Shown here is a 75-nucleotide RNA sequence, a member of the family "L13-Bacteroidia ribosomal protein leader". For this family Rfam cites "Discovery of 20 novel ribosomal leader candidates in bacteria and archaea" (Eckert and Weinberg, BMC Microbiol, 2020). It is annotated as a cis-regulatory leader.
[Rfam]
RNA sequence: GGGGACACACUUAGAGUCCCCCGUGUGAGCGUGUUAAUAGUGGCGCUUUUGGCCGAGCGUCAUGGUUAGUGAAUC
Numbered sequence: 001g002g003g004g005a006c007a008c009a010c011u012u013a014g015a016g017u018c019c020c021c022c023g024u025g026u027g028a029g030c031g032u033g034u035u036a037a038u039a040g041u042g043g044c045g046c047u048u049u050u051g052g053c054c055g056a057g058c059g060u061c062a063u064g065g066u067u068a069g070u071g072a073a074u075c
Base pairs, nucleotide, nucleotide: 001021002020003019004018005017006016034069035068036067037066038065040063041062042061043060044059045058046057047056048055